Rfam assigns this 96-nucleotide RNA sequence from Brenthis ino to the family "mir-210 microRNA precursor family". The family has 26 seed sequences and 790 matches in Rfam 15.1. Pairs were carried over by alignment from the consensus structure, which was predicted with WAR.

RNA sequence: AUGAAGUCCAAAGCAGCUGCUGGCCACUGCACAAGAUUAGUAUAUUAUACUCUUGUGCGUGUGACAGCGGCUAUUGCGGACCUUUCAUUACCAACG
Numbered sequence: 001a002u003g004a005a006g007u008c009c010a011a012a013g014c015a016g017c018u019g020c021u022g023g024c025c026a027c028u029g030c031a032c033a034a035g036a037u038u039a040g041u042a043u044a045u046u047a048u049a050c051u052c053u054u055g056u057g058c059g060u061g062u063g064a065c066a067g068c069g070g071c072u073a074u075u076g077c078g079g080a081c082c083u084u085u086c087a088u089u090a091c092c093a094a095c096g
Stems, first nucleotide, its partner, number of pairs: 006081004012075001015072008024063001025061002028059006035052002